[Rfam]
RNA: c-di-GMP-I-GGC riboswitch aptamer
Organism: Paenibacillus methanolicus
RNA sequence: AUAAUAUAUGGCAAACUAUGCGAAAGCAUAGGACGCAAAGCCACGGAUCUGAAAUCCAAGUAUGAUCGCCGGGUUGCUACAU
Numbered sequence: 001a002u003a004a005u006a007u008a009u010g011g012c013a014a015a016c017u018a019u020g021c022g023a024a025a026g027c028a029u030a031g032g033a034c035g036c037a038a039a040g041c042c043a044c045g046g047a048u049c050u051g052a053a054a055u056c057c058a059a060g061u062a063u064g065a066u067c068g069c070c071g072g073g074u075u076g077c078u079a080c081a082u
Stems, first nucleotide, its partner, number of pairs: 001082001004078001011036002016031006034068001039075004044071003047066003
Dot-bracket structure: (..(......((...((((((....))))))..[))..((((.((((((..............))).])))))))..)...)